[Rfam]
Rfam assigns this 310-nucleotide RNA from Carnegiea gigantea to the family "Plant signal recognition particle RNA". Its Rfam clan is "SRP clan". Taxonomically the source falls in Carnegiea (Eukaryota, Viridiplantae, Mesangiospermae, Gunneridae). The family's consensus secondary structure is taken from published work. The literature on the family includes a 2002 paper in Nucleic Acids Res by Regalia et al., "Prediction of signal recognition particle RNA genes". It is annotated as a non-coding RNA gene.
RNA sequence: GCCGAGUUCCGUCACGUGAACUUGUGACCCAAGUGGGGGCGCCAAAGGGGUGGAACAUGGGCUCAGUCGAAGUGGGUCGGAUCUGCGACGGUUAGAUGCUGGCUUGCCCUCUCCAAGUUAGGAGCUGACCCAAGUGAACCCAGGCGUAGGCUUGGUUUAACUGGGCCCUAAAGUGGCGGGAACUGCGUGAGGCUGGUUUCACAGAGCAACGAUCACUGCCCGCUCUUGUCAGUGGAAGGAUAAUGAGUCGAUGCCAUCCAGAUCUAAGAGUUGCCUAGUUGGCUGUGUUCCUAAUUGAACCAUCACCUUU
Numbered sequence: 001g002c003c004g005a006g007u008u009c010c011g012u013c014a015c016g017u018g019a020a021c022u023u024g025u026g027a028c029c030c031a032a033g034u035g036g037g038g039g040c041g042c043c044a045a046a047g048g049g050g051u052g053g054a055a056c057a058u059g060g061g062c063u064c065a066g067u068c069g070a071a072g073u074g075g076g077u078c079g080g081a082u083c084u085g086c087g088a089c090g091g092u093u094a095g096a097u098g099c100u101g102g103c104u105u106g107c108c109c110u111c112u113c114c115a116a117g118u119u120a121g122g123a124g125c126u127g128a129c130c131c132a133a134g135u136g137a138a139c140c141c142a143g144g145c146g147u148a149g150g151c152u153u154g155g156u157u158u159a160a161c162u163g164g165g166c167c168c169u170a171a172a173g174u175g176g177c178g179g180g181a182a183c184u185g186c187g188u189g190a191g192g193c194u195g196g197u198u199u200c201a202c203a204g205a206g207c208a209a210c211g212a213u214c215a216c217u218g219c220c221c222g223c224u225c226u227u228g229u230c231a232g233u234g235g236a237a238g239g240a241u242a243a244u245g246a247g248u249c250g251a252u253g254c255c256a257u258c259c260a261g262a263u264c265u266a267a268g269a270g271u272u273g274c275c276u277a278g279u280u281g282g283c284u285g286u287g288u289u290c291c292u293a294a295u296u297g298a299a300c301c302a303u304c305a306c307c308u309u310u
Base pairs, nucleotide, nucleotide: 001040002039003038004023005022006021007020008019009018028037029036030035044309045308047306049304050303051302052301053300056297057296058293059292060291061288062287064285065284066283068282070280071279073277074276075275076274077273079265080264081263082262083261084260085259087257090255091254093253094252100250101249102248103247104246105245106244108239109238112236113235114234115233117230119228120227121226122225123224124223125222127167129165130164131163132162134161135160137158138157140155141154142153143152144151145150168173175220176219177218178217179216186211187210188209193204194203195202